[Rfam]
RNA sequence: ACUAAACGCUUCUAGGGUUCCGACAGGGCGUCAGCGCGCUCUGUGGCUGGUCCGAGAGAAGCAGGUCGGUUUUGGCUUCGUCUUCGCGAAUCUAGAGGCCGACUACACGGCGGGAAAAAAGCCCGGGAGGA
Numbered sequence: 001a002c003u004a005a006a007c008g009c010u011u012c013u014a015g016g017g018u019u020c021c022g023a024c025a026g027g028g029c030g031u032c033a034g035c036g037c038g039c040u041c042u043g044u045g046g047c048u049g050g051u052c053c054g055a056g057a058g059a060a061g062c063a064g065g066u067c068g069g070u071u072u073u074g075g076c077u078u079c080g081u082c083u084u085c086g087c088g089a090a091u092c093u094a095g096a097g098g099c100c101g102a103c104u105a106c107a108c109g110g111c112g113g114g115a116a117a118a119a120a121g122c123c124c125g126g127g128a129g130g131a
Stems, first nucleotide, its partner, number of pairs: 008062005015053002020050002022047001023044008064104010106126001108129001112124003

Overview: Rfam assigns this 131-nucleotide RNA sequence from Geitlerinema sp. PCC 7407 to the family "Guanidine-I riboswitch aptamer". This family represents a conserved RNA structure found upstream of the ykkC and yxkD genes in Bacillus subtilis and related genes in other bacteria. The function of this family is unclear although it has been suggested that it may function to switch on efflux pumps and detoxification systems in response to harmful environmental molecules. The source organism's lineage runs through Bacteria, Bacillati, Cyanobacteriota, Geitlerinemataceae and Geitlerinema.